[Rfam]
RNA: Small nucleolar RNA SNORD25
Organism: Genlisea aurea
Nucleotides: 093
Base pairs, nucleotide, nucleotide: 002092003091004090005089006088
Number, partner (000 for none) and nucleotide at each position: 001000a002092a003091c004090a005089a006088c007000a008000g009000u010000g011000a012000u013000g014000a015000g016000c017000c018000u019000c020000u021000u022000a023000u024000a025000a026000a027000c028000a029000c030000a031000c032000a033000g034000a035000c036000c037000u038000g039000u040000a041000a042000u043000g044000a045000a046000u047000g048000c049000g050000g051000a052000c053000g054000u055000g056000a057000u058000c059000g060000c061000g062000u063000a064000c065000a066000u067000u068000a069000u070000a071000a072000a073000c074000a075000u076000c077000u078000a079000a080000g081000g082000g083000a084000c085000u086000g087000a088006g089005u090004u091003g092002u093000u